[Rfam]
RNA sequence: GGUUGCAACAUCCCCGUGGGUUGGAUGGCGGUUUGAAACGGGCCGCUCUAGCGAAUCCACUGCAGCC
Numbered sequence: 001g002g003u004u005g006c007a008a009c010a011u012c013c014c015c016g017u018g019g020g021u022u023g024g025a026u027g028g029c030g031g032u033u034u035g036a037a038a039c040g041g042g043c044c045g046c047u048c049u050a051g052c053g054a055a056u057c058c059a060c061u062g063c064a065g066c067c
Base pairs, nucleotide, nucleotide: 001067002066003065004064005063006062007061013053014051016060017059018058019057020056021055022054023052025049027047028046029045030044031043032042033041034040
RNA: nadA riboswitch
Organism: Edaphobacter dinghuensis